[Rfam]
RNA sequence: GGUGAUAAACGCGCAGAUAAUAAGCGGAUCGGACCCGGGGGCGGUACCCGGCGGCUCCACCAAAAGCCCUUGUUGGGGGAUAAUGGGGCCGAAAUAGGAUCGACGGACGUCUAAAACUGUAGCUUUUACUCGGUGAGGUACCACCGUUAUCGGUCCGUAAAGCAUAGUUGCCAACAACAAUCAUGCUCCGGUCGCCGUUGCUGCGUAA
Numbered sequence: 001g002g003u004g005a006u007a008a009a010c011g012c013g014c015a016g017a018u019a020a021u022a023a024g025c026g027g028a029u030c031g032g033a034c035c036c037g038g039g040g041g042c043g044g045u046a047c048c049c050g051g052c053g054g055c056u057c058c059a060c061c062a063a064a065a066g067c068c069c070u071u072g073u074u075g076g077g078g079g080a081u082a083a084u085g086g087g088g089c090c091g092a093a094a095u096a097g098g099a100u101c102g103a104c105g106g107a108c109g110u111c112u113a114a115a116a117c118u119g120u121a122g123c124u125u126u127u128a129c130u131c132g133g134u135g136a137g138g139u140a141c142c143a144c145c146g147u148u149a150u151c152g153g154u155c156c157g158u159a160a161a162g163c164a165u166a167g168u169u170g171c172c173a174a175c176a177a178c179a180a181u182c183a184u185g186c187u188c189c190g191g192u193c194g195c196c197g198u199u200g201c202u203g204c205g206u207a208a
Stems, first nucleotide, its partner, number of pairs: 001130005013120004025109002029106003035051005052091007131146004